Rfam assigns this 303-nucleotide RNA to the family "Mycobacterium smegmatis small RNA 1". A search with the family's covariance model found it, with a score of 234 bits.
[Rfam]
RNA sequence: ACGGAAGCCCGGCAAGGCCAAGGCCGAUCCGGAAGAGAAGGAUCGUUCUCCCGACCCGGGCACCCAGCACGGUUCCUCGGCACCCACGCGGAGUCAUAGCCGCGAAGAUGGCAGAAGUGUUGCGGGCCUGCGUAAUUGCGAAAAACGGAAGAUGUCGACGGCCCUUUGGGUGGGGUUGCAGUCGGAAGUUUCGCAAACGCGCCGAGGCCACCCACGCAACCCAGAAGUGCACGCUUGGUAACCGAGGGCUGUGCUGCCGGGGCGGCGAUUCGAACCUCGUUCGGGUCGCCGCCCUUUUACACU
Numbered sequence: 001a002c003g004g005a006a007g008c009c010c011g012g013c014a015a016g017g018c019c020a021a022g023g024c025c026g027a028u029c030c031g032g033a034a035g036a037g038a039a040g041g042a043u044c045g046u047u048c049u050c051c052c053g054a055c056c057c058g059g060g061c062a063c064c065c066a067g068c069a070c071g072g073u074u075c076c077u078c079g080g081c082a083c084c085c086a087c088g089c090g091g092a093g094u095c096a097u098a099g100c101c102g103c104g105a106a107g108a109u110g111g112c113a114g115a116a117g118u119g120u121u122g123c124g125g126g127c128c129u130g131c132g133u134a135a136u137u138g139c140g141a142a143a144a145a146c147g148g149a150a151g152a153u154g155u156c157g158a159c160g161g162c163c164c165u166u167u168g169g170g171u172g173g174g175g176u177u178g179c180a181g182u183c184g185g186a187a188g189u190u191u192c193g194c195a196a197a198c199g200c201g202c203c204g205a206g207g208c209c210a211c212c213c214a215c216g217c218a219a220c221c222c223a224g225a226a227g228u229g230c231a232c233g234c235u236u237g238g239u240a241a242c243c244g245a246g247g248g249c250u251g252u253g254c255u256g257c258c259g260g261g262g263c264g265g266c267g268a269u270u271c272g273a274a275c276c277u278c279g280u281u282c283g284g285g286u287c288g289c290c291g292c293c294c295u296u297u298u299a300c301a302c303u
Base pairs, nucleotide, nucleotide: 003064004063007061008060009059010058011057012056016052017051021049022048025045026044027043028042029041030040065256066255067254068253069252070251071250072249073248077245078244079243080242084238085237086236088234089233090232093230094229099112100111101110119220120219121218122217123216124215125209126208127207128206129205130202131201132200133199136196137195138194139193140192141191145189146188151183152182153181159178160177161176162175163174164173165172259295260294261293262292263291264290265289266288267287268286270284271283272282
About the family: Mycobacterium smegmatis small RNA 1 is highly expressed during stationary phase of growth. Ms1 RNA directly interacts with RNA polymerase (RNAP), but in a different way than 6S, which is present in other bacteria. Ms1 does not require the presence of the main sigma factor for RNAP interaction. There is evidence that Ms1 RNA may function similar to 6S RNA in M. smegmatis which does not have 6S RNA.
Rfam links the family to the GO term RNA polymerase binding.